[Rfam]
The record is a 79-nucleotide RNA from Coregonus sp. 'balchen', which matches "Small nucleolar RNA SNORD35" in Rfam.
U35 is a C/D box snoRNA located in intron 6 of ribosomal protein L13A and intron 3 of ribosomal protein S11 in humans and at homologous positions in mouse and chicken ribosomal protein genes. U35 guides the methylation of 2'-O-ribose sites in 28S rRNA.
By type it is a C/D-box small nucleolar RNA.
NCBI's taxonomy places the organism under Eukaryota, Deuterostomia, Vertebrata, Teleostomi, Coregonus.
The base pairs follow the family's consensus structure, which was predicted with PFOLD.
Its family is annotated with nucleolus and RNA processing in the Gene Ontology.
RNA sequence: UGCACAUGGUUAUCACGAUGUUCUUCCAAGCCUUUGUGGCUCUGUCCACACUGCCUAAUGGCAACACUGAUGCAACUCU
Numbered sequence: 001u002g003c004a005c006a007u008g009g010u011u012a013u014c015a016c017g018a019u020g021u022u023c024u025u026c027c028a029a030g031c032c033u034u035u036g037u038g039g040c041u042c043u044g045u046c047c048a049c050a051c052u053g054c055c056u057a058a059u060g061g062c063a064a065c066a067c068u069g070a071u072g073c074a075a076c077u078c079u
Base pairs, nucleotide, nucleotide: 001074002073003072004071